[Rfam]
RNA sequence: GCAGAUGUUUCUAGGGUUCCGAUGCCGUCAGGGCAUGUCUGGACCGAGAGAAACCUCCGGUGGGGAGACAUCCACCGGGUCCACGGCGGGAUAAAAGCCCGGGAGGC
Numbered sequence: 001g002c003a004g005a006u007g008u009u010u011c012u013a014g015g016g017u018u019c020c021g022a023u024g025c026c027g028u029c030a031g032g033g034c035a036u037g038u039c040u041g042g043a044c045c046g047a048g049a050g051a052a053a054c055c056u057c058c059g060g061u062g063g064g065g066a067g068a069c070a071u072c073c074a075c076c077g078g079g080u081c082c083a084c085g086g087c088g089g090g091a092u093a094a095a096a097g098c099c100c101g102g103g104a105g106g107c
Stems, first nucleotide, its partner, number of pairs: 007054005014045002019042002021039001022036005056079009082102001084105001088100003
Guanidine-I riboswitch aptamer: a 107-nucleotide sequence from Ensifer fredii. For this family Rfam cites "New RNA motifs suggest an expanded scope for riboswitches in bacterial genetic control" (Barrick et al., Proc Natl Acad Sci U S A, 2004). The organism belongs to Ensifer fredii, within Bacteria. Rfam's curators put it in the seed alignment.